The record is a 51-nucleotide sequence, which matches "chrB-b RNA" in Rfam.
The family's consensus secondary structure is taken from published work.
RNA sequence: CGGGGACUUUGCAGCCUCCCCGUAUCCAGACGCAAUGCGUCCAAGGCCUGC
Numbered sequence: 001c002g003g004g005g006a007c008u009u010u011g012c013a014g015c016c017u018c019c020c021c022g023u024a025u026c027c028a029g030a031c032g033c034a035a036u037g038c039g040u041c042c043a044a045g046g047c048c049u050g051c
Base pairs, nucleotide, nucleotide: 001022002021003020004019005018006017011051012050013049014048029041030040031039032038033037
By type it is a cis-regulatory element. Rfam's curators put it in the seed alignment.